[Rfam]
RNA sequence: AACCUAUACAGAUGUAUCAACGCAAGACAGUUGAGCAUCUCCCUGUAGGAACAUGUUUUAAUAGAAGCAUUGAUGAUAAGUCUUAUUGUGUAGAUUAUGAGUUGAAAUAAGAUGAGUCAAUGUGGAAUAGGUCAACCGUGAGACCUUGAAUUGGAAAAUUCUAAAAUAGACCUAGAAAUGGAGAUUUCUGAAAUUUCGUAUUUUCUAGUUACGGUAGA
Numbered sequence: 001a002a003c004c005u006a007u008a009c010a011g012a013u014g015u016a017u018c019a020a021c022g023c024a025a026g027a028c029a030g031u032u033g034a035g036c037a038u039c040u041c042c043c044u045g046u047a048g049g050a051a052c053a054u055g056u057u058u059u060a061a062u063a064g065a066a067g068c069a070u071u072g073a074u075g076a077u078a079a080g081u082c083u084u085a086u087u088g089u090g091u092a093g094a095u096u097a098u099g100a101g102u103u104g105a106a107a108u109a110a111g112a113u114g115a116g117u118c119a120a121u122g123u124g125g126a127a128u129a130g131g132u133c134a135a136c137c138g139u140g141a142g143a144c145c146u147u148g149a150a151u152u153g154g155a156a157a158a159u160u161c162u163a164a165a166a167u168a169g170a171c172c173u174a175g176a177a178a179u180g181g182a183g184a185u186u187u188c189u190g191a192a193a194u195u196u197c198g199u200a201u202u203u204u205c206u207a208g209u210u211a212c213g214g215u216a217g218a
Stems, first nucleotide, its partner, number of pairs: 003049006010040006017034005022028001067123008081112007092103002095100001129146005135215006141167001148161005172208007181197006
RNA: IS605-orfB-I RNA